[Rfam]
This 102-nucleotide RNA from Texcoconibacillus texcoconensis belongs to the Rfam family "Purine riboswitch aptamer". A search with the family's covariance model found it, with a score of 89 bits. The source organism's lineage runs through Bacteria, Bacillota, Caryophanales, Bacillaceae and Texcoconibacillus.
RNA sequence: CAAAAUGAUCAAAGAUUUCCUCAUAUAAUCUUGGGAAUAUGGCCCAUAAGUUUCUACCUGAUGACCGUAAAUCAUCGGACUAUGAGGGAGUGAACGAACGAU
Numbered sequence: 001c002a003a004a005a006u007g008a009u010c011a012a013a014g015a016u017u018u019c020c021u022c023a024u025a026u027a028a029u030c031u032u033g034g035g036a037a038u039a040u041g042g043c044c045c046a047u048a049a050g051u052u053u054c055u056a057c058c059u060g061a062u063g064a065c066c067g068u069a070a071a072u073c074a075u076c077g078g079a080c081u082a083u084g085a086g087g088g089a090g091u092g093a094a095c096g097a098a099c100g101a102u
Stems, first nucleotide, its partner, number of pairs: 018088008029049001032046004058078007